[Rfam]
RNA: Insect-specific Flavivirus 3' UTR cis-acting replication element (CRE)
Organism: Homarus americanus
RNA sequence: GGAAACGACAAUACUUAGAACCUAAUAGAACCUGACCUAACAUACCCACAGGUAGGGUAUGUUAGGUCAGGUUUUAUUAGGUUCUA
Number, nucleotide and partner (000 for none) at each position: 001g000002g000003a000004a000005a000006c000007g000008a000009c000010a000011a000012u000013a000014c000015u000016u086017a085018g084019a083020a000021c081022c080023u079024a078025a000026u076027a075028g000029a073030a072031c071032c070033u069034g000035a000036c000037c066038u065039a063040a062041c061042a060043u059044a058045c057046c056047c055048a000049c000050a000051g000052g000053u000054a000055g047056g046057g045058u044059a043060u042061g041062u040063u039064a000065g038066g037067u000068c000069a033070g032071g031072u030073u029074u000075u027076a026077u000078u024079a023080g022081g021082u000083u019084c018085u017086a016